Rfam assigns this 107-nucleotide RNA from Lysobacter sp. N42 to the family "SAH (S-adenosyl-L-homocysteine) riboswitch aptamer". Pairs were carried over by alignment from the consensus structure, which is taken from published work. Rfam 15.1 lists 1,354 matches to the family in 1,132 species. It scores 53 bits against the family's covariance model.
RNA sequence: CCCACCGAGGGGCGCUGCGACCGUCGCGCGGACACCCGCGCCGAGCCUUCACCGAAGGCGACGACGGCCAGGCUCGGUGGCGAUCCUUCCAACGGCGCCCGUGCAGG
Numbered sequence: 001c002c003c004a005c006c007g008a009g010g011g012g013c014g015c016u017g018c019g020a021c022c023g024u025c026g027c028g029c030g031g032a033c034a035c036c037c038g039c040g041c042c043g044a045g046c047c048u049u050c051a052c053c054g055a056a057g058g059c060g061a062c063g064a065c066g067g068c069c070a071g072g073c074u075c076g077g078u079g080g081c082g083a084u085c086c087u088u089c090c091a092a093c094g095g096c097g098c099c100c101g102u103g104c105a106g107g
Stems, first nucleotide, its partner, number of pairs: 002080007021067006
Dot-bracket structure: .(((((((............((((((...................................))))))......)))))))...........................